Notes: The family of this 592-nucleotide part of an RNA from Powellomyces hirtus is "Eukaryotic small subunit ribosomal RNA". Lineage of the source: Eukaryota > Fungi > Chytridiomycotina > Spizellomycetales > Powellomyces. Clan: SSU clan. It scores 1839 bits against the family's covariance model.
[Rfam]
RNA sequence: AGUCAUAUGCUUGUCUCAAAGAUUAAGCCAUGCAUGUCUAAGUAUAAACAAAUUUGUACUGUGAAACUGCGAAUGGCUCAUUAAAUCAGUUAUAGUUUAUUUGAUAAUACCUUACUACUUGGAUAACCGUGGUAAUUCUAGAGCUAAUACAUGCUAAAAAUCCCGACUUCUGGAAGGGAUGUAUUUAUUAGAUAAAAAACCAACCCGGGCAACCGGUUUUUUGGUGAUUCAUGAUAACUUUUCGAAUCGUAUGGCCUUGUGCCGACGAUGGUUCAUUCAAAUUUCUGCCCUAUCAACUUUCGAUGGUAGGAUAGAGGCCUACCAUGGUUUUAACGGGUAACGGAGAAUUAGGGUUCGAUUCCGGAGAGGGAGCCUGAGAAACGGCUACCACAUCCAAGGAAGGCAGCAGGCGCGCAAAUUACCCAAUCCUGACACAGGGAGGUAGUGACAAUAAAUAACAAUACAGGGCUCUACGAGUCUUGUAAUUGGAAUGAGUACAAUUUAAAUCCCUUAACGAGGAACAAUUGGAGGGCAAGUCUGGUGCCAGCAGCCGCGGUAAUUCCAGCUCCAAUAGCGUAUAUUAAAGUUGUUG
Numbered sequence: 001a002g003u004c005a006u007a008u009g010c011u012u013g014u015c016u017c018a019a020a021g022a023u024u025a026a027g028c029c030a031u032g033c034a035u036g037u038c039u040a041a042g043u044a045u046a047a048a049c050a051a052a053u054u055u056g057u058a059c060u061g062u063g064a065a066a067c068u069g070c071g072a073a074u075g076g077c078u079c080a081u082u083a084a085a086u087c088a089g090u091u092a093u094a095g096u097u098u099a100u101u102u103g104a105u106a107a108u109a110c111c112u113u114a115c116u117a118c119u120u121g122g123a124u125a126a127c128c129g130u131g132g133u134a135a136u137u138c139u140a141g142a143g144c145u146a147a148u149a150c151a152u153g154c155u156a157a158a159a160a161u162c163c164c165g166a167c168u169u170c171u172g173g174a175a176g177g178g179a180u181g182u183a184u185u186u187a188u189u190a191g192a193u194a195a196a197a198a199a200c201c202a203a204c205c206c207g208g209g210c211a212a213c214c215g216g217u218u219u220u221u222u223g224g225u226g227a228u229u230c231a232u233g234a235u236a237a238c239u240u241u242u243c244g245a246a247u248c249g250u251a252u253g254g255c256c257u258u259g260u261g262c263c264g265a266c267g268a269u270g271g272u273u274c275a276u277u278c279a280a281a282u283u284u285c286u287g288c289c290c291u292a293u294c295a296a297c298u299u300u301c302g303a304u305g306g307u308a309g310g311a312u313a314g315a316g317g318c319c320u321a322c323c324a325u326g327g328u329u330u331u332a333a334c335g336g337g338u339a340a341c342g343g344a345g346a347a348u349u350a351g352g353g354u355u356c357g358a359u360u361c362c363g364g365a366g367a368g369g370g371a372g373c374c375u376g377a378g379a380a381a382c383g384g385c386u387a388c389c390a391c392a393u394c395c396a397a398g399g400a401a402g403g404c405a406g407c408a409g410g411c412g413c414g415c416a417a418a419u420u421a422c423c424c425a426a427u428c429c430u431g432a433c434a435c436a437g438g439g440a441g442g443u444a445g446u447g448a449c450a451a452u453a454a455a456u457a458a459c460a461a462u463a464c465a466g467g468g469c470u471c472u473a474c475g476a477g478u479c480u481u482g483u484a485a486u487u488g489g490a491a492u493g494a495g496u497a498c499a500a501u502u503u504a505a506a507u508c509c510c511u512u513a514a515c516g517a518g519g520a521a522c523a524a525u526u527g528g529a530g531g532g533c534a535a536g537u538c539u540g541g542u543g544c545c546a547g548c549a550g551c552c553g554c555g556g557u558a559a560u561u562c563c564a565g566c567u568c569c570a571a572u573a574g575c576g577u578a579u580a581u582u583a584a585a586g587u588u589g590u591u592g
Base pairs, nucleotide, nucleotide: 001582002581003580005579006578007577008576009575010574011573014453016451020446021413027411028410029409031408032407033406036070037069041068042067043066048062049061077366078365079364087287088286089285092282093281096280097279102275103274104273118153120151121150127143130140131139132138160180161179162178163177164176167173168172185237186236187235188234189233190232199225200224201223202222206215207214208213247268248267249266250265252264253263254262255261289337290336291335296328297327298326303325304324305323306322307321308320309319310318341363342362343361344360345356346355347354348353368389369388371386372385373384391402393400394399419444421443422442423441427439428438429437430436431435459488460487461486462484463483464482465481466480467479468478469477470476471475495515496514497512499511525571526570527569528568529567530566538565539564540563541562547554548553